[Rfam]
RNA: Glycine riboswitch aptamer
Nucleotides: 143
Base pairs, nucleotide, nucleotide: 007137009135010134011133012132013131020064021063022062023061024060025059066122067121068120069118070117073116074115075114079110080109081108082107083106084105
Number, partner (000 for none) and nucleotide at each position: 001000g002000c003000a004000c005000c006000g007137u008000a009135c010134u011133c012132u013131g014000g015000a016000g017000a018000g019000c020064g021063g022062c023061a024060g025059u026000a027000g028000c029000a030000g031000c032000c033000g034000g035000g036000c037000g038000u039000g040000c041000g042000u043000g044000a045000u046000c047000g048000c049000g050000c051000a052000g053000g054000c055000g056000c057000a058000a059025g060024c061023u062022g063021c064020c065000c066122a067121c068120c069118g070117a071000a072000g073116g074115g075114g076000c077000g078000c079110g080109c081108g082107u083106c084105g085000a086000u087000g088000u089000g090000g091000g092000c093000a094000g095000g096000c097000a098000a099000g100000c101000c102000a103000c104000a105084c106083g107082g108081c109080g110079c111000a112000a113000u114075c115074u116073c117070u118069c119000a120068g121067g122066u123000a124000c125000c126000g127000a128000g129000g130000a131013c132012a133011g134010a135009g136000g137007g138000g139000g140000c141000a142000c143000g